A member of the RNA family "Flavo-1 RNA" from Flavobacterium johnsoniae, 78 nucleotides long. The organism belongs to Flavobacterium johnsoniae, within Bacteria.

RNA sequence: UUCUAGCCCCGAUAGCAGUGGAAAUCCUUUUGCACCGGGGUUCGGCGCAAAAGAUUGCAACGUAUAACGGAAAGAGCU
Numbered sequence: 001u002u003c004u005a006g007c008c009c010c011g012a013u014a015g016c017a018g019u020g021g022a023a024a025u026c027c028u029u030u031u032g033c034a035c036c037g038g039g040g041u042u043c044g045g046c047g048c049a050a051a052a053g054a055u056u057g058c059a060a061c062g063u064a065u066a067a068c069g070g071a072a073a074g075a076g077c078u
Base pairs, nucleotide, nucleotide: 009070010069011068013066014065018061019060023056024055025054026053029051030050031049032048033047035045036044037043
Dot-bracket structure: ........(((.((...((...((((..(((((.(((.....))).))))).))))...))...)).)))........

It is one of the family's seed sequences.